Shown here is a 156-nucleotide RNA sequence from Keratinibaculum paraultunense, a member of the family "c-di-AMP riboswitch aptamer (ydaO/yuaA leader)". Lineage of the source: Bacteria > Bacillati > Bacillota > Tissierellales > Keratinibaculum.

RNA sequence: AUAUUUAUAUCGCUGAAUUCUUAAUUUAUAUUAAGAAGCGGGGGAACCAACAAUAGGGGUGAAUCCAUAUAUGUGGAAAGAAUCCAUAUAUGGACGGGCCAAUAACCCUUAGCCCGAACCCGUCAGCUAACCUCGUAAGCGUGAAAGGGGGAUAUA
Numbered sequence: 001a002u003a004u005u006u007a008u009a010u011c012g013c014u015g016a017a018u019u020c021u022u023a024a025u026u027u028a029u030a031u032u033a034a035g036a037a038g039c040g041g042g043g044g045a046a047c048c049a050a051c052a053a054u055a056g057g058g059g060u061g062a063a064u065c066c067a068u069a070u071a072u073g074u075g076g077a078a079a080g081a082a083u084c085c086a087u088a089u090a091u092g093g094a095c096g097g098g099c100c101a102a103u104a105a106c107c108c109u110u111a112g113c114c115c116g117a118a119c120c121c122g123u124c125a126g127c128u129a130a131c132c133u134c135g136u137a138a139g140c141g142u143g144a145a146a147g148g149g150g151g152a153u154a155u156a
Base pairs, nucleotide, nucleotide: 011141012140013139014138018037019036020035021034022033023032024031025030038136039135040134041133042132043131048056057121058120059119065093066092067091068090069089070088071087072086073085096115097114098113099112